[Rfam]
RNA sequence: GAGGACAGAAGUUUCUCGCAAUUAAAAUUUAUCAGCUUUACUUUCUGCUCUCUGGACACGCCUGCUUCUUUUUUCCCUGAGAGCAUUUUUUCGCAUUCUGAUUUCGUUAAUUUAGAUUUUGAAUAUCUUGUCCAGUUAGUAGGAGUGCCACCUUCUUUUUCAAUAGUGGCAGUUAUUUU
Numbered sequence: 001g002a003g004g005a006c007a008g009a010a011g012u013u014u015c016u017c018g019c020a021a022u023u024a025a026a027a028u029u030u031a032u033c034a035g036c037u038u039u040a041c042u043u044u045c046u047g048c049u050c051u052c053u054g055g056a057c058a059c060g061c062c063u064g065c066u067u068c069u070u071u072u073u074u075c076c077c078u079g080a081g082a083g084c085a086u087u088u089u090u091u092c093g094c095a096u097u098c099u100g101a102u103u104u105c106g107u108u109a110a111u112u113u114a115g116a117u118u119u120u121g122a123a124u125a126u127c128u129u130g131u132c133c134a135g136u137u138a139g140u141a142g143g144a145g146u147g148c149c150a151c152c153u154u155c156u157u158u159u160u161c162a163a164u165a166g167u168g169g170c171a172g173u174u175a176u177u178u179u
Base pairs, nucleotide, nucleotide: 002039003038004037006035008033009032010029011028012027013026014025042145043144044143045142046141047140048139049138052135053134054133055132056131063085064084065083066082068081069080070079090123091122092121093120097116098115099114100113101112146171147170148169149168150167151166
The family of this 179-nucleotide RNA from Escherichia coli is "RalR antitoxin". The pairing is the family consensus, mapped onto this sequence. On this family, see Guo et al., Nucleic Acids Res 2014: "RalR (a DNase) and RalA (a small RNA) form a type I toxin-antitoxin system in Escherichia coli". By type it is a small RNA. Trans-encoded, has 16 nucleotides complimentary to coding region of toxin RalR mRNA. RalA functions as an antitoxin by preventing translation of RalR (a non-specific endonuclease that cleaves methylated and unmethylated DNA). Its activity requires RNA chaperone Hfq.